[Rfam]
Rfam assigns this 132-nucleotide RNA sequence from Otolemur garnettii to the family "Small nucleolar RNA SNORA72". The organism belongs to Otolemur, within Eukaryota.

RNA sequence: CUGCAAAUAUUCUCACUGUUCUGAUGUUGUAAGUAUCAAGACAGGCUAAAUAUUCACUAUAUAGAAACCAUGCAUGUGUCCCCAGACCUAGUUCUCUCCUUAGGUUUGAUUUAAUAAAUGCUGGUGAUAAAA
Numbered sequence: 001c002u003g004c005a006a007a008u009a010u011u012c013u014c015a016c017u018g019u020u021c022u023g024a025u026g027u028u029g030u031a032a033g034u035a036u037c038a039a040g041a042c043a044g045g046c047u048a049a050a051u052a053u054u055c056a057c058u059a060u061a062u063a064g065a066a067a068c069c070a071u072g073c074a075u076g077u078g079u080c081c082c083c084a085g086a087c088c089u090a091g092u093u094c095u096c097u098c099c100u101u102a103g104g105u106u107u108g109a110u111u112u113a114a115u116a117a118a119u120g121c122u123g124g125u126g127a128u129a130a131a132a
Stems, first nucleotide, its partner, number of pairs: 003057001016044005022038005067125004072121002083108009
It scores 127 bits against the family's covariance model.
By type it is an H/ACA-box small nucleolar RNA.
Rfam's curators write: U72 is a member of the H/ACA class of snoRNAs. The snoRNA gene is located in intron 4 of the ribosomal L30 protein gene in human, mouse and chicken.